[Rfam]
RNA sequence: CUGAGGUCAUCGUAAGAUGUCCUGAUCGCCAUACAGAAGUCAGCAGACGGCAUAGUAGCUGGCGAAGUCAGUGAAGGCC
Number, nucleotide and partner (000 for none) at each position: 001c000002u000003g000004a023005g022006g021007u000008c019009a018010u017011c016012g000013u000014a000015a000016g011017a010018u009019g008020u000021c006022c005023u004024g000025a000026u000027c000028g000029c000030c000031a000032u000033a000034c000035a000036g000037a000038a000039g048040u047041c046042a000043g000044c000045a000046g041047a040048c039049g079050g078051c077052a000053u000054a000055g000056u000057a000058g072059c071060u070061g069062g068063c067064g000065a000066a000067g063068u062069c061070a060071g059072u058073g000074a000075a000076g000077g051078c050079c049
Rfam assigns this 79-nucleotide sequence from Endozoicomonas montiporae to the family "Group II catalytic intron D1-D4-1". From the family's description: Group II introns are found in rRNA, tRNA and mRNA of organelles in fungi, plants and protists, and also in mRNA in bacteria. Rfam 15.1 lists 2,508 matches to the family in 1,144 species.